[Rfam]
RNA sequence: UUCUUAGACCUAUGCAAUGAGAUGUUAGGACAACGCUUCAGGGUGGGAACACAGCAGAGUAGCCUAGCUUCUUAUGUGCCUUAGUCAUCUGAGGAGGG
Numbered sequence: 001u002u003c004u005u006a007g008a009c010c011u012a013u014g015c016a017a018u019g020a021g022a023u024g025u026u027a028g029g030a031c032a033a034c035g036c037u038u039c040a041g042g043g044u045g046g047g048a049a050c051a052c053a054g055c056a057g058a059g060u061a062g063c064c065u066a067g068c069u070u071c072u073u074a075u076g077u078g079c080c081u082u083a084g085u086c087a088u089c090u091g092a093g094g095a096g097g098g
Base pairs, nucleotide, nucleotide: 004092005091006090007089008088010084011083012082014080015076017075018074019073020072021071022070024068025067026066027065028064029063035060036059037058038057043052044051045050
RNA: Bacterial small signal recognition particle RNA
Organism: Helicobacter felis